[Rfam]
RNA sequence: GUCAAGCACUCUGGAGAGAGCGGUUGAAUCCGCCGCCGAAGGGGCACGAGGUGCGCUCAUUGCGCCUCCAAACUCUCAGGCAAAAGGACAGAGGGGCGCCC
Numbered sequence: 001g002u003c004a005a006g007c008a009c010u011c012u013g014g015a016g017a018g019a020g021c022g023g024u025u026g027a028a029u030c031c032g033c034c035g036c037c038g039a040a041g042g043g044g045c046a047c048g049a050g051g052u053g054c055g056c057u058c059a060u061u062g063c064g065c066c067u068c069c070a071a072a073c074u075c076u077c078a079g080g081c082a083a084a085a086g087g088a089c090a091g092a093g094g095g096g097c098g099c100c101c
Stems, first nucleotide, its partner, number of pairs: 007095001009093005020033004035081003038077002042075003048068007